[Rfam]
RNA sequence: UCUGAAUCUAAAGAAAACAUUUCUGCACACACACCAGACUAUUGAAGCCAGUGUGUGGAAAUGCUUUUGCCACAUUCUUA
Numbered sequence: 001u002c003u004g005a006a007u008c009u010a011a012a013g014a015a016a017a018c019a020u021u022u023c024u025g026c027a028c029a030c031a032c033a034c035c036a037g038a039c040u041a042u043u044g045a046a047g048c049c050a051g052u053g054u055g056u057g058g059a060a061a062u063g064c065u066u067u068u069g070c071c072a073c074a075u076u077c078u079u080a
Stems, first nucleotide, its partner, number of pairs: 001080001004077004009072001013068004018063012032051001
Shown here is an 80-nucleotide RNA from Aotus nancymaae, a member of the family "mir-147 microRNA precursor family". On this family, see Kawaji et al., BMC Genomics 2008: "Hidden layers of human small RNAs". NCBI's taxonomy places the organism under Eukaryota, Opisthokonta, Euteleostomi, Eutheria, Aotus. The family's consensus secondary structure was predicted with RNAalifold. Rfam links the family to the GO terms RISC complex and miRNA-mediated post-transcriptional gene silencing.